[Rfam]
RNA: Small nucleolar RNA SNORD56
RNA sequence: CUACAAAGAUAUCAAUAUUUUUCAUCAACAGUUCACCUCAUGAGUUUUGAACCUUUGAGCCUGAGUAA
Numbered sequence: 001c002u003a004c005a006a007a008g009a010u011a012u013c014a015a016u017a018u019u020u021u022u023c024a025u026c027a028a029c030a031g032u033u034c035a036c037c038u039c040a041u042g043a044g045u046u047u048u049g050a051a052c053c054u055u056u057g058a059g060c061c062u063g064a065g066u067a068a
Base pairs, nucleotide, nucleotide: 002067003066004065008026009025010024